A member of the RNA family "U11 spliceosomal RNA" from Eolophus roseicapilla, 131 nucleotides long. Rfam classes the family as a spliceosomal small nuclear RNA. The family's consensus secondary structure is taken from published work. Taxonomically the source falls in Eolophus (Eukaryota, Teleostomi, Sarcopterygii, Cacatuidae). A search with the family's covariance model found it, with a score of 112 bits. Gene Ontology terms of the family: pre-mRNA 5'-splice site binding, U11 snRNP and mRNA 5'-splice site recognition. The family has 72 seed sequences and 2,595 matches in Rfam 15.1. Clan: U1 clan.
RNA sequence: AAAAAGGGCUUCUGCCGUGUGUGGCACGGGGGGGCCGCGCGGCCGCUCCCGCGGAAUCGAUAUCAAGAGAUUUCGGAAGCACAAUUUUUGCGAUGUGGGGGUCGCUGGUAACCGCUUGUUCCGGCGCCCUG
Numbered sequence: 001a002a003a004a005a006g007g008g009c010u011u012c013u014g015c016c017g018u019g020u021g022u023g024g025c026a027c028g029g030g031g032g033g034g035c036c037g038c039g040c041g042g043c044c045g046c047u048c049c050c051g052c053g054g055a056a057u058c059g060a061u062a063u064c065a066a067g068a069g070a071u072u073u074c075g076g077a078a079g080c081a082c083a084a085u086u087u088u089u090g091c092g093a094u095g096u097g098g099g100g101g102u103c104g105c106u107g108g109u110a111a112c113c114g115c116u117u118g119u120u121c122c123g124g125c126g127c128c129c130u131g
Stems, first nucleotide, its partner, number of pairs: 008080005013026005027051006034044001035042002052075007099129004104125005110120003